[Rfam]
RNA sequence: UGAAACUUUUAAGUAGUAGUGCCGCAGGUUGGAAAAUAUGAUAUCACAACCUUCACACCACUGCUUAAUAGAUUUA
Numbered sequence: 001u002g003a004a005a006c007u008u009u010u011a012a013g014u015a016g017u018a019g020u021g022c023c024g025c026a027g028g029u030u031g032g033a034a035a036a037u038a039u040g041a042u043a044u045c046a047c048a049a050c051c052u053u054c055a056c057a058c059c060a061c062u063g064c065u066u067a068a069u070a071g072a073u074u075u076a
Stems, first nucleotide, its partner, number of pairs: 001076004006071002010067008019058001024054001026052005
The family of this 76-nucleotide RNA sequence from Strongyloides stercoralis is "mir-252 microRNA precursor family". Rfam links the family to the GO terms RISC complex and miRNA-mediated post-transcriptional gene silencing. Rfam 15.1 lists 422 matches to the family in 306 species.